Shown here is a 122-nucleotide sequence from Dendrobium nobile, a member of the family "U11 spliceosomal RNA".
[Rfam]
RNA sequence: AAAAAGGGUCGGUUGGCUAUGCCACACACAUCUUUUAAUUGAUGGGCGUUGUAUGAUUAUCAAGACAUAUGGCCGACAUAAUUUAUGGAUCUUAUAGGGUUGGCUUGCCCGGCUAACCUGCC
Numbered sequence: 001a002a003a004a005a006g007g008g009u010c011g012g013u014u015g016g017c018u019a020u021g022c023c024a025c026a027c028a029c030a031u032c033u034u035u036u037a038a039u040u041g042a043u044g045g046g047c048g049u050u051g052u053a054u055g056a057u058u059a060u061c062a063a064g065a066c067a068u069a070u071g072g073c074c075g076a077c078a079u080a081a082u083u084u085a086u087g088g089a090u091c092u093u094a095u096a097g098g099g100u101u102g103g104c105u106u107g108c109c110c111g112g113c114u115a116a117c118c119u120g121c122c
Base pairs, nucleotide, nucleotide: 008077009076010075011074012073014024015023016022017021025048027046029044030043031042032041049072050071051070052069053068054067055066098122099121100120102118103117105116106115107114108112

Taxonomically the source falls in Dendrobium (Eukaryota, Streptophyta, Petrosaviidae, Dendrobiinae). It is annotated as a spliceosomal small nuclear RNA. The family is grouped with related families in Rfam's "U1 clan".